[Rfam]
RNA sequence: AAUCGCUUUCUCAGUAACAGGGUCCAGUUGCAAAAGCCCCGACUUAUCGGGGUUUUUUGUUAUUAGACAGCAGAAUCACUGGGCUUUAUGCCCUUUUUUU
Number, nucleotide and partner (000 for none) at each position: 001a000002a000003u000004c000005g000006c000007u000008u000009u000010c000011u000012c000013a000014g000015u000016a000017a000018c000019a000020g000021g000022g000023u000024c000025c000026a000027g000028u000029u000030g000031c000032a000033a056034a055035a054036g053037c052038c051039c050040c049041g048042a000043c000044u000045u000046a000047u000048c041049g040050g039051g038052g037053u036054u035055u034056u033057u000058u000059g000060u000061u000062a000063u000064u000065a000066g000067a000068c000069a000070g000071c000072a000073g000074a000075a000076u000077c000078a000079c000080u000081g093082g092083g091084c090085u000086u000087u000088a000089u000090g084091c083092c082093c081094u000095u000096u000097u000098u000099u000100u000
The family of this 100-nucleotide RNA from Limnobaculum parvum is "Gammaprotebacteria rimP leader". On this family, see Naville and Gautheret, Genome Biol 2010: "Premature terminator analysis sheds light on a hidden world of bacterial transcriptional attenuation". Gene Ontology term of the family: regulation of gene expression. NCBI's taxonomy places the organism under Bacteria, Pseudomonadati, Pseudomonadota, Enterobacterales, Limnobaculum. It is annotated as a cis-regulatory leader.